[Rfam]
RNA sequence: CGAGUUGGCCAGACGAUCGCGGGCAACAGUCCGAAAGGCGUUGUCUGAGGAAAGUCCGAGCUGCAUAGAGCAGGGUGCUGGAUAACGUCCAGUGGGGGCGACCCUAAGGAAAGUGCCACAGAAAACAAACCGCCUUCUUUGAGGGUAAGGAUGAAACGGUGCGGUAAGAGCGCACCAGAGGCCAGGUGACUGGUUUGCUUGGUAAACCCCACCCGCAGCAAGACCGAAUAGGGGGAGGAUGAGGUUGCUCGCCGACUUCCCGGGUAGGUCGCUUGAGGUGUCCGGUAACGGGCAUCCCAGAUAAAUGAUCGUCCGUGACAGAACUCGGCUUAUGGCCAACUCGUCGU
Number, nucleotide and partner (000 for none) at each position: 001c343002g342003a341004g340005u339006u338007g337008g336009c335010c334011a333012g313013a312014c311015g310016a309017u308018c307019g000020c047021g046022g045023g044024c043025a042026a041027c040028a000029g000030u000031c000032c000033g000034a000035a000036a000037g000038g000039c000040g027041u026042u025043g024044u023045c022046u021047g020048a000049g000050g000051a000052a331053a330054g329055u000056c328057c327058g326059a325060g324061c218062u217063g216064c215065a000066u000067a000068g250069a249070g248071c247072a000073g214074g213075g212076u211077g210078c092079u091080g090081g089082a088083u000084a000085a000086c000087g000088u082089c081090c080091a079092g078093u107094g105095g104096g103097g102098g000099c000100g000101a000102c097103c096104c095105u094106a000107a093108g209109g208110a000111a000112a000113g207114u206115g203116c202117c201118a000119c000120a000121g000122a000123a000124a000125a000126c000127a000128a000129a000130c150131c149132g146133c145134c144135u143136u142137c141138u000139u000140u000141g137142a136143g135144g134145g133146u132147a000148a000149g131150g130151a000152u000153g000154a000155a000156a000157c000158g176159g175160u174161g173162c172163g171164g000165u000166a000167a000168g000169a000170g000171c163172g162173c161174a160175c159176c158177a000178g198179a196180g195181g194182c193183c192184a191185g190186g000187u000188g000189a000190c185191u184192g183193g182194u181195u180196u179197g000198c178199u000200u000201g117202g116203u115204a000205a000206a114207c113208c109209c108210c077211a076212c075213c074214c073215g064216c063217a062218g061219c000220a000221a000222g270223a269224c268225c267226g000227a000228a000229u000230a000231g000232g261233g260234g259235g258236a257237g256238g000239a000240u000241g000242a000243g253244g252245u251246u000247g071248c070249u069250c068251g245252c244253c243254g000255a000256c237257u236258u235259c234260c233261c232262g000263g000264g000265u000266a000267g225268g224269u223270c222271g000272c000273u000274u000275g000276a000277g296278g295279u294280g293281u292282c291283c290284g289285g000286u000287a000288a000289c284290g283291g282292g281293c280294a279295u278296c277297c000298c000299a000300g000301a000302u000303a000304a000305a000306u000307g018308a017309u016310c015311g014312u013313c012314c000315g000316u000317g000318a000319c000320a000321g000322a000323a000324c060325u059326c058327g057328g056329c054330u053331u052332a000333u011334g010335g009336c008337c007338a006339a005340c004341u003342c002343g001344u000345c000346g000347u000

This 347-nucleotide sequence from Sulfobacillus harzensis belongs to the Rfam family "Bacterial RNase P class A". It is annotated as a ribozyme. Rfam links the family to the GO terms dimeric ribonuclease P complex, ribonuclease P activity and tRNA processing. Rfam describes the family as follows. Ribonuclease P (RNase P) is a ubiquitous endoribonuclease, found in archaea, bacteria and eukarya as well as chloroplasts and mitochondria. NCBI's taxonomy places the organism under Bacteria, Bacillati, Bacillota, Eubacteriales, Sulfobacillus.